[Rfam]
Nucleotides: 287
Stems, first nucleotide, its partner, number of pairs: 001259005007253003011248001012233006019184008028174001030172001035059003039055005067154007080095003105145001195214002235247004265287003269284006
Number, partner (000 for none) and nucleotide at each position: 001259u002258a003257c004256a005255a006000u007253a008252g009251a010000a011248u012233c013232g014231g015230c016229u017228c018000u019184c020183u021182c022181a023180a024179g025178g026177g027000u028174g029000g030172u031000c032000g033000g034000c035059u036058c037057a038000u039055c040054c041053c042052c043051u044000a045000a046000u047000a048000g049000a050000a051043a052042g053041g054040g055039g056000g057037u058036g059035a060000g061000a062000a063000u064000a065000a066000u067154g068153a069152c070151a071150g072149u073148a074000u075000a076000u077000g078000a079000g080095g081094c082093a083000a084000u085000a086000u087000c088000u089000u090000u091000a092000a093082u094081g095080c096000u097000g098000g099000g100000u101000u102000g103000u104000g105145g106000c107000g108000u109000g110000c111000u112000g113000g114000u115000u116000g117000c118000c119000a120000c121000a122000a123000u124000a125000u126000u127000u128000a129000u130000c131000g132000c133000a134000g135000u136000a137000u138000u139000c140000a141000c142000a143000g144000c145105c146000a147000u148073u149072g150071c151070u152069g153068u154067c155000a156000u157000g158000a159000a160000g161000a162000a163000a164000g165000a166000u167000a168000a169000a170000u171000a172030g173000a174028c175000c176000u177026c178025c179024c180023u181022u182021g183020a184019g185000c186000c187000u188000c189000g190000c191000a192000a193000g194000c195214a196213g197000a198000a199000a200000g201000g202000a203000a204000g205000g206000u207000c208000u209000a210000u211000u212000u213196c214195u215000a216000a217000u218000u219000a220000g221000a222000g223000c224000u225000u226000a227000u228017g229016a230015g231014c232013c233012g234000a235247u236246c237245c238244c239000c240000u241000u242000g243000u244238g245237g246236g247235a248011a249000c250000g251009u252008c253007u254000a255005u256004u257003g258002u259001a260000c261000a262000g263000g264000c265287c266286g267285c268000u269284u270283g271282g272281u273280g274279u275000u276000g277000c278000c279274g280273c281272a282271c283270c284269a285267g286266c287265g
The record is a 287-nucleotide sequence from Aneurinibacillus sp. XH2, which matches "BsrG" in Rfam. From the family's description: bsrE, bsrG and bsrH pair through intermolecular interactions with antisense sRNAs. They form type I toxin/antitoxin system that includes an mRNA encoding for a short, toxic peptide (bsrE, bsrG and bsrH) and an antitoxin that is comprised of an antisense RNA. bsrG encodes a 39-amino-acid toxin, and the 180 nucleotide antisense sRNA called SR4 acts as the antitoxin (they overlap by 123 nucleotides). SR4 interaction with the 3'UTR of bsrG RNA promotes bsrG degradation and inhibits its translation. BsrG interferes with cell envelope biosynthesis, causes membrane invaginations and delocalisation of the cell wall synthesis and initiates autolysis. bsrE RNA encodes 30 amino-acid toxin peptide. Its antitoxin gene, SR5 overlaps by 112 nucleotides at the 3' end of bsrE. SR5 also overlaps bsrG from nucleotide 163 to 52 (Rfam overlap check). The antitoxin SR5 promotes bsrE degradation but unlike SR4 it does not directly inhibits toxin mRNA translation. The family's RNA type in Rfam is small RNA. Gene Ontology terms of the family: toxin activity and autolysis. The base pairs follow the family's consensus structure, which was predicted with WAR. The source organism's lineage runs through Bacteria, Bacillota, Bacilli, Paenibacillaceae and Aneurinibacillus.